The record is a 97-nucleotide RNA sequence, which matches "L4-Archaeoglobi ribosomal protein leades" in Rfam.

RNA sequence: CUGACACAGUCACAUGGGUCGAUAUUGGUGUAGAUAGCCCGGUUCCCCUCAAACCUUCCUCAAGGAAGGUGCAAAAGGGCGAGCGUGUCAAUGUCAG
Numbered sequence: 001c002u003g004a005c006a007c008a009g010u011c012a013c014a015u016g017g018g019u020c021g022a023u024a025u026u027g028g029u030g031u032a033g034a035u036a037g038c039c040c041g042g043u044u045c046c047c048c049u050c051a052a053a054c055c056u057u058c059c060u061c062a063a064g065g066a067a068g069g070u071g072c073a074a075a076a077g078g079g080c081g082a083g084c085g086u087g088u089c090a091a092u093g094u095c096a097g
Stems, first nucleotide, its partner, number of pairs: 001097005009089001011087003015041004023036004043081001045079003053070006
Source information: Rfam classes the family as a cis-regulatory leader.